The family of this 96-nucleotide RNA sequence from Clostridium sp. C105KSO13 is "Purine riboswitch aptamer".
Riboswitches are metabolite binding domains within certain messenger RNAs that serve as precision sensors for their corresponding targets.
Pairs were carried over by alignment from the consensus structure, which is taken from published work.
It scores 54 bits against the family's covariance model.
[Rfam]
RNA sequence: UAAUAUUACUGUUUUCCAUUAUGUAUAUUCUGGGGAUUGGCCCAGAGUCUCUACCAACUGCCGCAAGAGUUGACUACAUAAAUUUGUCUUAAUGAC
Numbered sequence: 001u002a003a004u005a006u007u008a009c010u011g012u013u014u015u016c017c018a019u020u021a022u023g024u025a026u027a028u029u030c031u032g033g034g035g036a037u038u039g040g041c042c043c044a045g046a047g048u049c050u051c052u053a054c055c056a057a058c059u060g061c062c063g064c065a066a067g068a069g070u071u072g073a074c075u076a077c078a079u080a081a082a083u084u085u086g087u088c089u090u091a092a093u094g095a096c
Stems, first nucleotide, its partner, number of pairs: 019081007029046006055072005